[Rfam]
This 163-nucleotide RNA sequence from Myotis brandtii belongs to the Rfam family "U1 spliceosomal RNA".
RNA sequence: AUACUUACAUGGUAGGGGAGAUACCAUAAUCAGGAAGAUGGUUUUCCCAGGGUUGGGCUUAUACAUUGCAUCCUGAUGUGCUGACCCCUGUGAUUUCCCUAAAUGUGGGAAACUCGACUGCAUAAUUUGUGGUAGCAUAGGACUGUGUCUGCACUCUCCCCUG
Numbered sequence: 001a002u003a004c005u006u007a008c009a010u011g012g013u014a015g016g017g018g019a020g021a022u023a024c025c026a027u028a029a030u031c032a033g034g035a036a037g038a039u040g041g042u043u044u045u046c047c048c049a050g051g052g053u054u055g056g057g058c059u060u061a062u063a064c065a066u067u068g069c070a071u072c073c074u075g076a077u078g079u080g081c082u083g084a085c086c087c088c089u090g091u092g093a094u095u096u097c098c099c100u101a102a103a104u105g106u107g108g109g110a111a112a113c114u115c116g117a118c119u120g121c122a123u124a125a126u127u128u129g130u131g132g133u134a135g136c137a138u139a140g141g142a143c144u145g146u147g148u149c150u151g152c153a154c155u156c157u158c159c160c161c162u163g
Base pairs, nucleotide, nucleotide: 012121013120014119015118016048017047018046019045020044021043023042024041025040026039027038049089050088051087052086056082057081058080060078061077062076064075091116092115093114094112095111096110098108099107137162140159141158142157145154146153147152

U1 is a small nuclear RNA (snRNA) component of the spliceosome (involved in pre-mRNA splicing). By type it is a spliceosomal small nuclear RNA. Gene Ontology terms of the family: mRNA 5'-splice site recognition, U1 snRNP and pre-mRNA 5'-splice site binding. Its Rfam clan is "U1 clan".